Bacterial RNase P class A: a 374-nucleotide RNA from Gloeocapsa sp. PCC 73106. Taxonomically the source falls in Gloeocapsa (Bacteria, Bacillati, Cyanobacteriota, Chroococcidiopsidales). Pairs were carried over by alignment from the consensus structure, which is taken from published work.

RNA sequence: AGAGUAGACGAGGUAGUUGCGGAUUCACGCUUUAAGCUGUGAGUUCGAGGAAAGUCCGGGCUCCCUAAAGACCAAACUUGCUGGAUAACGCCCAGUGCGGGUGACCGCGAGGAUAGUGCCACAGAAAUAUACCGCCGCAACGAUUGAGGUAAGGGUGCAAAGGUGGGGUAAGAGCCCACCAGCGAUAUCGCGAGGUAUCGGCUCGGUAAACCCCGGUUGGGAGCAAGGUCGGAGGGACAAGGGUUGGUCUUUUUUCCUGUCCCGAAUUGAUGUGCACCGCUUGAGGAGUUUGGUAACAAACCACCCAGAUAGAUAACUACCCUCUGAGUUUAAAGCUCCGAGAACAGAACCCGGCUUACGUUUCUACUCUUUUC
Numbered sequence: 001a002g003a004g005u006a007g008a009c010g011a012g013g014u015a016g017u018u019g020c021g022g023a024u025u026c027a028c029g030c031u032u033u034a035a036g037c038u039g040u041g042a043g044u045u046c047g048a049g050g051a052a053a054g055u056c057c058g059g060g061c062u063c064c065c066u067a068a069a070g071a072c073c074a075a076a077c078u079u080g081c082u083g084g085a086u087a088a089c090g091c092c093c094a095g096u097g098c099g100g101g102u103g104a105c106c107g108c109g110a111g112g113a114u115a116g117u118g119c120c121a122c123a124g125a126a127a128u129a130u131a132c133c134g135c136c137g138c139a140a141c142g143a144u145u146g147a148g149g150u151a152a153g154g155g156u157g158c159a160a161a162g163g164u165g166g167g168g169u170a171a172g173a174g175c176c177c178a179c180c181a182g183c184g185a186u187a188u189c190g191c192g193a194g195g196u197a198u199c200g201g202c203u204c205g206g207u208a209a210a211c212c213c214c215g216g217u218u219g220g221g222a223g224c225a226a227g228g229u230c231g232g233a234g235g236g237a238c239a240a241g242g243g244u245u246g247g248u249c250u251u252u253u254u255u256c257c258u259g260u261c262c263c264g265a266a267u268u269g270a271u272g273u274g275c276a277c278c279g280c281u282u283g284a285g286g287a288g289u290u291u292g293g294u295a296a297c298a299a300a301c302c303a304c305c306c307a308g309a310u311a312g313a314u315a316a317c318u319a320c321c322c323u324c325u326g327a328g329u330u331u332a333a334a335g336c337u338c339c340g341a342g343a344a345c346a347g348a349a350c351c352c353g354g355c356u357u358a359c360g361u362u363u364c365u366a367c368u369c370u371u372u373u374c
Stems, first nucleotide, its partner, number of pairs: 001370008010361001012321007020047009052357003056354005061223004070262001073259001075218003079215002081095004096110001097108004111213002116211002118207003132154002134150003138146003162180006182202001183200007227278003238269001254266003285304001288301005
Dot-bracket structure: ((((((((.(.(((((((.(((((((((..........)))))))))....[[[.[[[[[((((.....[..[.(((.((((((.......))))(((((....)))).)((...(((((...........(((((.(((...))).)))..)).......((((((.......)))))).((((((((....))))))).)..)))..))))))))).))))...(((........(...............(((..]..].)))..)......)))......(..(((((....)))))..)..........)))))))............................]]]]]]]]...).))))))))....